[Rfam]
RNA sequence: UUGUAUCUUAGAGUUCCUUUGAACGCUUCAUGCAUGAAACUAUCUAUUGGGUCUGAAAUCCACAACAAUAGAUAAUCCCUUAUUGAAUGAAGUGUUUGGGGGAACUCUUAGGUUCAA
Numbered sequence: 001u002u003g004u005a006u007c008u009u010a011g012a013g014u015u016c017c018u019u020u021g022a023a024c025g026c027u028u029c030a031u032g033c034a035u036g037a038a039a040c041u042a043u044c045u046a047u048u049g050g051g052u053c054u055g056a057a058a059u060c061c062a063c064a065a066c067a068a069u070a071g072a073u074a075a076u077c078c079c080u081u082a083u084u085g086a087a088u089g090a091a092g093u094g095u096u097u098g099g100g101g102g103a104a105c106u107c108u109u110a111g112g113u114u115c116a117a
Stems, first nucleotide, its partner, number of pairs: 005113004011107010022097002024094008033085002
RNA: mir-395 microRNA precursor family
Organism: Trifolium subterraneum